[Rfam]
Nucleotides: 057
Stems, first nucleotide, its partner, number of pairs: 006051002009048004022040007
Number, partner (000 for none) and nucleotide at each position: 001000c002000a003000c004000u005000g006051a007050c008000g009048c010047c011046g012045g013000g014000c015000c016000c017000c018000u019000c020000u021000g022040g023039c024038g025037g026036u027035g028034g029000g030000u031000u032000u033000c034028c035027c036026a037025c038024c039023g040022c041000g042000a043000u044000g045012u046011c047010g048009g049000a050007g051006u052000c053000a054000g055000c056000u057000g
The record is a 57-nucleotide RNA sequence from Pseudomonas flexibilis, which matches "terC RNA" in Rfam. Rfam classes the family as a cis-regulatory element. Lineage of the source: Bacteria > Pseudomonadota > Pseudomonadales > Pseudomonadaceae > Pseudomonas.